Rfam assigns this 114-nucleotide sequence from Gambusia affinis to the family "Potassium channel RNA editing signal".

[Rfam]
RNA sequence: UUUAGCUACGGAGACAUGGUCCCGAAGACAAUUGCUGGAAAGAUCUUUGGCUCCAUCUGCUCCCUGAGCGGCGUGCUGGUGAUCGCUCUUCCCGUCCCUGUCAUCGUGUCCAAC
Numbered sequence: 001u002u003u004a005g006c007u008a009c010g011g012a013g014a015c016a017u018g019g020u021c022c023c024g025a026a027g028a029c030a031a032u033u034g035c036u037g038g039a040a041a042g043a044u045c046u047u048u049g050g051c052u053c054c055a056u057c058u059g060c061u062c063c064c065u066g067a068g069c070g071g072c073g074u075g076c077u078g079g080u081g082a083u084c085g086c087u088c089u090u091c092c093c094g095u096c097c098c099u100g101u102c103a104u105c106g107u108g109u110c111c112a113a114c
Base pairs, nucleotide, nucleotide: 002113005110007108008107009106010105011104013102014101015100016099018097019096021094037077038076040074049063050062

Lineage of the source: Eukaryota > Osteoglossocephalai > Ctenosquamata > Atherinomorphae > Gambusia.
Rfam classes the family as a cis-regulatory element.